Shown here is a 75-nucleotide RNA from Dethiosulfatibacter aminovorans, a member of the family "S10-Clostridia ribosomal protein leader". It is annotated as a cis-regulatory leader. Lineage of the source: Bacteria > Bacillati > Tissierellia > Dethiosulfatibacter > Dethiosulfatibacter aminovorans.
RNA sequence: CGCGUGCGAGGAAGCAGGAGGUUGCCGGUUUACCGGGUAAUUUUUGCGGAGCAAGUCUUGCUAUAAGCAAGGCGA
Numbered sequence: 001c002g003c004g005u006g007c008g009a010g011g012a013a014g015c016a017g018g019a020g021g022u023u024g025c026c027g028g029u030u031u032a033c034c035g036g037g038u039a040a041u042u043u044u045u046g047c048g049g050a051g052c053a054a055g056u057c058u059u060g061c062u063a064u065a066a067g068c069a070a071g072g073c074g075a
Base pairs, nucleotide, nucleotide: 014047015046016045018044019043020042021041025036026035027034028033056075057074060073061072062071